[Rfam]
RNA: Mammalian CPEB3 ribozyme
RNA sequence: GCAGGUUCAUCGGGCAUAACAGAAACACUCCUGGUGCAGUCCUGUCAGGUGCCAAUGCAUCUGUGAAUUCUGCU
Numbered sequence: 001g002c003a004g005g006u007u008c009a010u011c012g013g014g015c016a017u018a019a020c021a022g023a024a025a026c027a028c029u030c031c032u033g034g035u036g037c038a039g040u041c042c043u044g045u046c047a048g049g050u051g052c053c054a055a056u057g058c059a060u061c062u063g064u065g066a067a068u069u070c071u072g073c074u
Stems, first nucleotide, its partner, number of pairs: 013042002018074001020072005026036002046063007